A member of the RNA family "MIR159 microRNA precursor family" from Carnegiea gigantea, 211 nucleotides long. Rfam links the family to the GO terms miRNA-mediated post-transcriptional gene silencing and RISC complex. Lineage of the source: Eukaryota > Euphyllophyta > eudicotyledons > Pentapetalae > Carnegiea.

RNA sequence: AGUGGUCCAUGAGAGCUCUCUUACUCCAACCCUGAAAAAGAAAUGAAGGGAGUAAAAGGCCACAACUGCUAAGUCAUGAACACACAUUGAAGACGCGCAAAAUUAUUCAAUGAUUCAUGGCGCACCAUUAGAGGGUCGGCAUGAACUAGGAGAUGAGGUUACCUUCAUCUUUUUCGGUCUUGGAGUGAAAGGAGCUCUUGUGAUCUCUUUA
Numbered sequence: 001a002g003u004g005g006u007c008c009a010u011g012a013g014a015g016c017u018c019u020c021u022u023a024c025u026c027c028a029a030c031c032c033u034g035a036a037a038a039a040g041a042a043a044u045g046a047a048g049g050g051a052g053u054a055a056a057a058g059g060c061c062a063c064a065a066c067u068g069c070u071a072a073g074u075c076a077u078g079a080a081c082a083c084a085c086a087u088u089g090a091a092g093a094c095g096c097g098c099a100a101a102a103u104u105a106u107u108c109a110a111u112g113a114u115u116c117a118u119g120g121c122g123c124a125c126c127a128u129u130a131g132a133g134g135g136u137c138g139g140c141a142u143g144a145a146c147u148a149g150g151a152g153a154u155g156a157g158g159u160u161a162c163c164u165u166c167a168u169c170u171u172u173u174u175c176g177g178u179c180u181u182g183g184a185g186u187g188a189a190a191g192g193a194g195c196u197c198u199u200g201u202g203a204u205c206u207c208u209u210u211a
Stems, first nucleotide, its partner, number of pairs: 013197007022187007035174001066152002069149003075143004083135001

The literature on the family includes a 2004 paper in Mol Cell by Jones-Rhoades and Bartel, "Computational identification of plant microRNAs and their targets, including a stress-induced miRNA".